RNA sequence: GAGGGACAUGCCGAAAACCCUGAAACAGAGUAGGCU
Number, nucleotide and partner (000 for none) at each position: 001g000002a021003g020004g019005g018006a000007c000008a000009u000010g035011c034012c033013g000014a000015a000016a000017a000018c005019c004020c003021u002022g000023a000024a000025a000026c000027a000028g000029a000030g000031u000032a000033g012034g011035c010036u000
RNA: DUF805b RNA